[Rfam]
RNA sequence: GUCUUCUUGUAAUAAGCGCUGUGCUAAAAUUACAGAAACUAGGCAUCGCCUUGGUUUUUGUGAUCGUGCUAGCAGAGUACACACGGGAAGAAGAGUAAAACGCACCUCCUCUAAAAAGACUUGGGUGGACCUCUUUCUUAAUGUCCAGUGUCCUGUGUCUGACGAUCGGGUGCGACAGUA
Numbered sequence: 001g002u003c004u005u006c007u008u009g010u011a012a013u014a015a016g017c018g019c020u021g022u023g024c025u026a027a028a029a030u031u032a033c034a035g036a037a038a039c040u041a042g043g044c045a046u047c048g049c050c051u052u053g054g055u056u057u058u059u060g061u062g063a064u065c066g067u068g069c070u071a072g073c074a075g076a077g078u079a080c081a082c083a084c085g086g087g088a089a090g091a092a093g094a095g096u097a098a099a100a101c102g103c104a105c106c107u108c109c110u111c112u113a114a115a116a117a118g119a120c121u122u123g124g125g126u127g128g129a130c131c132u133c134u135u136u137c138u139u140a141a142u143g144u145c146c147a148g149u150g151u152c153c154u155g156u157g158u159c160u161g162a163c164g165a166u167c168g169g170g171u172g173c174g175a176c177a178g179u180a
Base pairs, nucleotide, nucleotide: 019077020076022074023073024072025071026070029067030066032064035058036057038055039054040053041052042051043049044048101174102173103172104171105170106169107168124149126147127146128145129144
Small nucleolar RNA SNORA81: a 180-nucleotide RNA from Ornithorhynchus anatinus.
The family's consensus secondary structure was predicted with WAR.
Taxonomically the source falls in Ornithorhynchus (Eukaryota, Deuterostomia, Dipnotetrapodomorpha, Amniota).
By type it is an H/ACA-box small nucleolar RNA.
The family has 28 seed sequences and 1,161 matches in Rfam 15.1.